Annotation
The record is a 187-nucleotide sequence from Agrilus planipennis, which matches "R2 RNA element" in Rfam. Rfam classes the family as a cis-regulatory element. A search with the family's covariance model found it, with a score of 43 bits. Taxonomically the source falls in Agrilus (Eukaryota, Metazoa, Allotriocarida, Neuropteroidea). Rfam's curators write: This family represents the 3' UTR region of the R2 retrotransposable element. This family is known to interact with the R2-encoded reverse transcriptase in a reaction known as target primed reverse transcription (TPRT). Rfam 15.1 lists 3,698 matches to the family in 74 species.

[Rfam]
RNA sequence: ACCUACCACAUAGGGUUAUUUCUAUAGGAUAACAAGACGGCUGAAGAGGACCCUAAUUGGUCCUAGAACGGCCUGAGGUUGAGGGGUUUUAGUCGGUAGGUCCGAGGACUUCUUCCUCGGGAAUCCGACACUACCCAGUCGUACGGACGGCUGGGUGUCUUCUGAAGAUUUCCCCUCUUCCACGAAA
Numbered sequence: 001a002c003c004u005a006c007c008a009c010a011u012a013g014g015g016u017u018a019u020u021u022c023u024a025u026a027g028g029a030u031a032a033c034a035a036g037a038c039g040g041c042u043g044a045a046g047a048g049g050a051c052c053c054u055a056a057u058u059g060g061u062c063c064u065a066g067a068a069c070g071g072c073c074u075g076a077g078g079u080u081g082a083g084g085g086g087u088u089u090u091a092g093u094c095g096g097u098a099g100g101u102c103c104g105a106g107g108a109c110u111u112c113u114u115c116c117u118c119g120g121g122a123a124u125c126c127g128a129c130a131c132u133a134c135c136c137a138g139u140c141g142u143a144c145g146g147a148c149g150g151c152u153g154g155g156u157g158u159c160u161u162c163u164g165a166a167g168a169u170u171u172c173c174c175c176u177c178u179u180c181c182a183c184g185a186a187a
Stems, first nucleotide, its partner, number of pairs: 057186002060183002077181002081177001083174003092129005101121008131157001133156005